Source information:
This 48-nucleotide RNA sequence from Pseudomonas knackmussii belongs to the Rfam family "Guanidine-II riboswitch aptamer (mini-ykkC)". Gene Ontology term of the family: regulation of gene expression. A search with the family's covariance model found it, with a score of 42 bits.
RNA sequence: GACCACGGACGACCGUGGCGCAGACCGAAUGACGGCGGGACGGCCCGC
Numbered sequence: 001g002a003c004c005a006c007g008g009a010c011g012a013c014c015g016u017g018g019c020g021c022a023g024a025c026c027g028a029a030u031g032a033c034g035g036c037g038g039g040a041c042g043g044c045c046c047g048c
Base pairs, nucleotide, nucleotide: 003018004017005016006015007014008013035048036047037046038045039044
The organism belongs to Pseudomonas knackmussii, within Bacteria.